[Rfam]
RNA sequence: GCCGGCGGAACGAGCGGCCCUCCGUCUGCGCGUCCCUUCCUGGGGUUCGCAGGCGGAGGGCU
Numbered sequence: 001g002c003c004g005g006c007g008g009a010a011c012g013a014g015c016g017g018c019c020c021u022c023c024g025u026c027u028g029c030g031c032g033u034c035c036c037u038u039c040c041u042g043g044g045g046u047u048c049g050c051a052g053g054c055g056g057a058g059g060g061c062u
Stems, first nucleotide, its partner, number of pairs: 001015002003012002016062015033045004

Notes:
Pseudomonas sRNA P35: a 62-nucleotide RNA from Pseudomonas aeruginosa. On this family, see Livny et al., Nucleic Acids Res 2006: "Identification of 17 Pseudomonas aeruginosa sRNAs and prediction of sRNA-encoding genes in 10 diverse pathogens using the bioinformatic tool sRNAPredict2". Pairs were carried over by alignment from the consensus structure, which was predicted with RNAalifold. The sequence is in the family's curated seed alignment. The organism belongs to Pseudomonas aeruginosa, within Bacteria.